[Rfam]
RNA sequence: AGCUCAUCAAGAGGGACUGAGGGAUACGGCCCUGUGAAGUCCCGGCAACCGCCGCGAUCCUCCGCCGCCCGGCAUCCAGCCAGGAAGCGGUUCGCGGAAACGGUGCCAAUUCCGCCCGGGGCGACCGCCGCACCCGGGGAAGAUGAGAA
Numbered sequence: 001a002g003c004u005c006a007u008c009a010a011g012a013g014g015g016a017c018u019g020a021g022g023g024a025u026a027c028g029g030c031c032c033u034g035u036g037a038a039g040u041c042c043c044g045g046c047a048a049c050c051g052c053c054g055c056g057a058u059c060c061u062c063c064g065c066c067g068c069c070c071g072g073c074a075u076c077c078a079g080c081c082a083g084g085a086a087g088c089g090g091u092u093c094g095c096g097g098a099a100a101c102g103g104u105g106c107c108a109a110u111u112c113c114g115c116c117c118g119g120g121g122c123g124a125c126c127g128c129c130g131c132a133c134c135c136g137g138g139g140a141a142g143a144u145g146a147g148a149a
Stems, first nucleotide, its partner, number of pairs: 003147006013043005021032003027114003044107004049103002111141001115138006
Dot-bracket structure: ..((((((....(((((...(((...[[[)))......)))))((((.((...................................................))))))...(]]]((((((............))))))..)))))))..
SAM riboswitch aptamer (S box leader): a 149-nucleotide RNA sequence from Nocardioides sp. JS614. NCBI's taxonomy places the organism under Bacteria, Bacillati, Actinomycetes, Propionibacteriales, Nocardioides. The SAM riboswitch is found upstream of a number of genes which code for proteins involved in methionine or cysteine biosynthesis in Gram-positive bacteria.